[Rfam]
RNA sequence: ACUGUGGAGUGUACAGGAACUUGUAAGUAGUGAAUUAUUUGAUAAUCACAAAAGCAUACACGGUGAAGCAGUAA
Number, nucleotide and partner (000 for none) at each position: 001a072002c071003u070004g069005u068006g000007g000008a000009g061010u060011g059012u058013a057014c000015a000016g000017g000018a000019a000020c000021u000022u056023g055024u054025a000026a000027g000028u000029a000030g049031u048032g047033a000034a046035u045036u044037a043038u000039u000040u000041g000042a000043u037044a036045a035046u034047c032048a031049c030050a000051a000052a000053a000054g024055c023056a022057u013058a012059c011060a010061c009062g000063g000064u000065g000066a000067a000068g005069c004070a003071g002072u001073a000074a000
RAGATH-18 RNA: a 74-nucleotide RNA sequence from Blautia sp. CAG:237.
The sequence is in the family's curated seed alignment.
The organism belongs to Blautia, within Bacteria.